Guanidine-I riboswitch aptamer: a 103-nucleotide RNA sequence from Mesobacillus foraminis. The base pairs follow the family's consensus structure. This family represents a conserved RNA structure found upstream of the ykkC and yxkD genes in Bacillus subtilis and related genes in other bacteria. It scores 90 bits against the family's covariance model.
RNA sequence: AAACAUGCUCUCUAGGGUUCCGUUUAAAAGGCAAUUUUAAAGACUGGUCCGAGAGAGAGCGUACAGUUCGCUGUAUACACGGAGGGACAAAAGCCCGGGAGAA
Numbered sequence: 001a002a003a004c005a006u007g008c009u010c011u012c013u014a015g016g017g018u019u020c021c022g023u024u025u026a027a028a029a030g031g032c033a034a035u036u037u038u039a040a041a042g043a044c045u046g047g048u049c050c051g052a053g054a055g056a057g058a059g060c061g062u063a064c065a066g067u068u069c070g071c072u073g074u075a076u077a078c079a080c081g082g083a084g085g086g087a088c089a090a091a092a093g094c095c096c097g098g099g100a101g102a103a
Stems, first nucleotide, its partner, number of pairs: 007060006015050002020047002022044001023041006061076006078098001080101001084096003